[Rfam]
The record is a 293-nucleotide RNA sequence from Penicillium argentinense, which matches "A. fumigatus sRNA Afu_309" in Rfam.
Taxonomically the source falls in Penicillium (Eukaryota, Opisthokonta, Dikarya, Eurotiales).
RNA sequence: UUCACCUCACGGAUCUGUGUCCAGAGCUCCCGUUCACAGCUGUGUUUCGGUUGAGCGCUGGGCAGUUCGACGAUCAAUGGAGCCAUACACUUCUUCUAUGUAUGGCACUUUACGGUGUCCUGUCGACAGGUCUCAGAUUAAUAUUCUGCGCCGGGUACCACUCGGGUCUUGAGCUCCCUCUGGUGAGCUCGGCUUGAGAGCCUGGAACUGCGGAUGGCGUCAUAUUCCUCCCCUCUUUGCCGAUUGGCCGUUGGCUGGUGAGGCUAGGGACUAACCAUGACUUGCCAACAUUC
Numbered sequence: 001u002u003c004a005c006c007u008c009a010c011g012g013a014u015c016u017g018u019g020u021c022c023a024g025a026g027c028u029c030c031c032g033u034u035c036a037c038a039g040c041u042g043u044g045u046u047u048c049g050g051u052u053g054a055g056c057g058c059u060g061g062g063c064a065g066u067u068c069g070a071c072g073a074u075c076a077a078u079g080g081a082g083c084c085a086u087a088c089a090c091u092u093c094u095u096c097u098a099u100g101u102a103u104g105g106c107a108c109u110u111u112a113c114g115g116u117g118u119c120c121u122g123u124c125g126a127c128a129g130g131u132c133u134c135a136g137a138u139u140a141a142u143a144u145u146c147u148g149c150g151c152c153g154g155g156u157a158c159c160a161c162u163c164g165g166g167u168c169u170u171g172a173g174c175u176c177c178c179u180c181u182g183g184u185g186a187g188c189u190c191g192g193c194u195u196g197a198g199a200g201c202c203u204g205g206a207a208c209u210g211c212g213g214a215u216g217g218c219g220u221c222a223u224a225u226u227c228c229u230c231c232c233c234u235c236u237u238u239g240c241c242g243a244u245u246g247g248c249c250g251u252u253g254g255c256u257g258g259u260g261a262g263g264c265u266a267g268g269g270a271c272u273a274a275c276c277a278u279g280a281c282u283u284g285c286c287a288a289c290a291u292u293c
Base pairs, nucleotide, nucleotide: 011133012132013131014130015129016128017127018126019063020062021061022060023059024058026056027055028054029053030050031049032048035044036043037042071125072124073123074122079109080108082106083105084104145210150208151205152204153203154202155201165194166193167192168191171190172189173188174187175186176185177183178182216286217285218284219281220280221279222278223277233269234268235267236266239264240263241262246256247255248254249253